Description: The record is a 389-nucleotide RNA from Pichia inconspicua, which matches "RNase MRP" in Rfam.
[Rfam]
RNA sequence: GUCCGUGGCGCAAGAAUCAUUUGUCGAGACACACAUAAGGGGUCUAUCUUGGACCCAUGACUUGUCUUGGGGAAAGUCUCCGGCAUAUAAUUUCAGGCGGCAACGUCAGAUGGAUCAUCCAAAUCCAUUUCCUCCAUUGUUGCUGCAACAAUGUAUUUGGUUGUCUCAACGCAUCGAGGCCUAGCAUUUAGGUGGACCAGUCUUUGUUGUGGUAAGACUUUAAUAGUCUUCAGUGGGGGACUUUCAGGGUUGCUUUUGCAUAGUAGCCCUUGUUUGAAAUCGCUUUUCUAAAGUGAAUUCGGCAUAGUACCAUGUGGUAUUAACGAUGGAUAUAAUGAUUGCUAUUUGUUUUCAAAUAGUAACCCAAUGGAGCUCACUUGUGGCACGGA
Numbered sequence: 001g002u003c004c005g006u007g008g009c010g011c012a013a014g015a016a017u018c019a020u021u022u023g024u025c026g027a028g029a030c031a032c033a034c035a036u037a038a039g040g041g042g043u044c045u046a047u048c049u050u051g052g053a054c055c056c057a058u059g060a061c062u063u064g065u066c067u068u069g070g071g072g073a074a075a076g077u078c079u080c081c082g083g084c085a086u087a088u089a090a091u092u093u094c095a096g097g098c099g100g101c102a103a104c105g106u107c108a109g110a111u112g113g114a115u116c117a118u119c120c121a122a123a124u125c126c127a128u129u130u131c132c133u134c135c136a137u138u139g140u141u142g143c144u145g146c147a148a149c150a151a152u153g154u155a156u157u158u159g160g161u162u163g164u165c166u167c168a169a170c171g172c173a174u175c176g177a178g179g180c181c182u183a184g185c186a187u188u189u190a191g192g193u194g195g196a197c198c199a200g201u202c203u204u205u206g207u208u209g210u211g212g213u214a215a216g217a218c219u220u221u222a223a224u225a226g227u228c229u230u231c232a233g234u235g236g237g238g239g240a241c242u243u244u245c246a247g248g249g250u251u252g253c254u255u256u257u258g259c260a261u262a263g264u265a266g267c268c269c270u271u272g273u274u275u276g277a278a279a280u281c282g283c284u285u286u287u288c289u290a291a292a293g294u295g296a297a298u299u300c301g302g303c304a305u306a307g308u309a310c311c312a313u314g315u316g317g318u319a320u321u322a323a324c325g326a327u328g329g330a331u332a333u334a335a336u337g338a339u340u341g342c343u344a345u346u347u348g349u350u351u352u353c354a355a356a357u358a359g360u361a362a363c364c365c366a367a368u369g370g371a372g373c374u375c376a377c378u379u380g381u382g383g384c385a386c387g388g389a
Stems, first nucleotide, its partner, number of pairs: 002389006009382003015340006024070007040056007075374002078372004096107004108130008248311003254307002257304003263300001265298001283293004342359006
Dot-bracket structure: .((((((.(((...((((((...(((((((.........(((((((...))))))).......)))))))....[[.[[[[..............((((....))))((((((((.......)))))))).....................................................................................................................(((...((.(((...(.(.................((((...))))....).).))).)).))).......................)))))).((((((......)))))).........]]]]]].....))).))))))
Annotation: It scores 89 bits against the family's covariance model. Rfam describes the family as follows. RNase MRP is an enzymatically active ribonucleoprotein with two distinct roles in eukaryotes. In mitochondria it plays a direct role in the initiation of mitochondrial DNA replication. In the nucleus it is involved in precursor rRNA processing, where it cleaves the internal transcribed spacer 1 between 18S and 5.8S rRNAs. Despite distinct functions, RNase MRP has been shown to be evolutionarily related to RNase P. Like eukaryotic RNase P, RNase MRP is not catalytically active without associated protein subunits. By type it is a ribozyme.